[Rfam]
RNA sequence: ACAAGUUUAAGACCACAGCAGAAGUGCUCAUGCAAUGGCUCUGUCAGACUCCAGUGAAUCUGUGAAUUCUGCU
Numbered sequence: 001a002c003a004a005g006u007u008u009a010a011g012a013c014c015a016c017a018g019c020a021g022a023a024g025u026g027c028u029c030a031u032g033c034a035a036u037g038g039c040u041c042u043g044u045c046a047g048a049c050u051c052c053a054g055u056g057a058a059u060c061u062g063u064g065a066a067u068u069c070u071g072c073u
Stems, first nucleotide, its partner, number of pairs: 010040002013038002017073007024036002045062004050057002
About this RNA
Mammalian CPEB3 ribozyme: a 73-nucleotide RNA from Alligator mississippiensis. Lineage of the source: Eukaryota > Eumetazoa > Gnathostomata > Euteleostomi > Alligator.